[Rfam]
RNA sequence: CUGUAAUACCCUCCUUGGGUGUUUCCUCCCUAGACUUAACCGCGCGUCGAGCGCGGUUUUUUUUGACCGCA
Numbered sequence: 001c002u003g004u005a006a007u008a009c010c011c012u013c014c015u016u017g018g019g020u021g022u023u024u025c026c027u028c029c030c031u032a033g034a035c036u037u038a039a040c041c042g043c044g045c046g047u048c049g050a051g052c053g054c055g056g057u058u059u060u061u062u063u064u065g066a067c068c069g070c071a
Stems, first nucleotide, its partner, number of pairs: 008020004040056006
RNA: Makes More Granules Regulator RNA (mmgR)